SAM riboswitch aptamer (S box leader): a 114-nucleotide RNA sequence from Marininema mesophilum. It scores 96 bits against the family's covariance model. Taxonomically the source falls in Marininema (Bacteria, Bacillati, Bacillota, Thermoactinomycetaceae).
[Rfam]
RNA sequence: CUCUUAUCAAGAGAGGUGGAGGGACUGGCCCGAUGAAGCCCGGCAACCGACCGUUAUAUUGUAACGGUAAAGGUGCCAAUUCCUACAGAACAAAAAUGUUCUGGGAGAUGAGGG
Numbered sequence: 001c002u003c004u005u006a007u008c009a010a011g012a013g014a015g016g017u018g019g020a021g022g023g024a025c026u027g028g029c030c031c032g033a034u035g036a037a038g039c040c041c042g043g044c045a046a047c048c049g050a051c052c053g054u055u056a057u058a059u060u061g062u063a064a065c066g067g068u069a070a071a072g073g074u075g076c077c078a079a080u081u082c083c084u085a086c087a088g089a090a091c092a093a094a095a096a097u098g099u100u101c102u103g104g105g106a107g108a109u110g111a112g113g114g
Stems, first nucleotide, its partner, number of pairs: 001114008013041001015040003021031003027083002042077004047073002050068006081106001086103006